[Rfam]
RNA sequence: CGACUAGCAGUCUAGGGUUCCGUUAACGACGGCUCGGCGCGGCAAUAACGCGUUUGGCAUGUAGUUAAGCCUGGUCCAAGAGACGGCGUAUAGAUGAAGCGGCGCGAGCGGCCGCCCGUCUAUAUAACACGGAAGGAUAAAAGCCUGGGAGAU
Number, nucleotide and partner (000 for none) at each position: 001c000002g000003a000004c000005u000006a000007g087008c086009a000010g084011u083012c082013u000014a000015g077016g076017g000018u000019u000020c074021c073022g071023u068024u067025a066026a065027c064028g000029a000030c000031g000032g000033c000034u000035c000036g000037g000038c000039g000040c000041g000042g000043c000044a000045a000046u000047a000048a000049c000050g000051c000052g000053u000054u000055u000056g000057g000058c000059a000060u000061g000062u000063a000064g027065u026066u025067a024068a023069g000070c000071c022072u000073g021074g020075u000076c016077c015078a000079a000080g000081a000082g012083a011084c010085g000086g008087c007088g125089u124090a123091u122092a121093g120094a119095u118096g000097a000098a000099g000100c000101g000102g000103c000104g000105c000106g000107a000108g000109c000110g000111g000112c000113c000114g000115c000116c000117c000118g095119u094120c093121u092122a091123u090124a089125u088126a000127a000128c148129a000130c151131g000132g000133a000134a146135g145136g144137a000138u000139a000140a000141a000142a000143g000144c136145c135146u134147g000148g128149g000150a000151g130152a000153u000
A member of the RNA family "Guanidine-I riboswitch aptamer" from Bacillus sp. FJAT-26390, 153 nucleotides long.
Its family is annotated with regulation of gene expression in the Gene Ontology.
The base pairs follow the family's consensus structure.
Lineage of the source: Bacteria > Bacillota > Bacilli > Bacillaceae > Bacillus.
Rfam 15.1 lists 1,509 matches to the family in 1,281 species.
A search with the family's covariance model found it, with a score of 66 bits.